[Rfam]
The family of this 119-nucleotide sequence from Streptomyces sp. YIM 121038 is "Actinobacteria sRNA Ms_IGR-7". Lineage of the source: Bacteria > Bacillati > Actinomycetota > Streptomycetaceae > Streptomyces. It scores 49 bits against the family's covariance model.
RNA sequence: GGAAGAUGCCUUGCUGUUCUUGCCUGAUGUGGUCCUAGAGAAACCCCAUCAUCGCAGGCCACAAGGCAUCUUCUCGUUCUCGGCCUUCACCCCGACCGGACACCAACCGGUGGAUCCGG
Numbered sequence: 001g002g003a004a005g006a007u008g009c010c011u012u013g014c015u016g017u018u019c020u021u022g023c024c025u026g027a028u029g030u031g032g033u034c035c036u037a038g039a040g041a042a043a044c045c046c047c048a049u050c051a052u053c054g055c056a057g058g059c060c061a062c063a064a065g066g067c068a069u070c071u072u073c074u075c076g077u078u079c080u081c082g083g084c085c086u087u088c089a090c091c092c093c094g095a096c097c098g099g100a101c102a103c104c105a106a107c108c109g110g111u112g113g114a115u116c117c118g119g
Base pairs, nucleotide, nucleotide: 002073003072004071005070006069007068008067009066010065011064012063013062015061016060019057021056022055023054025051026050027049028048032044033043098117099116100115103113104112105111
The family has 14 seed sequences and 463 matches in Rfam 15.1.
By type it is a small RNA.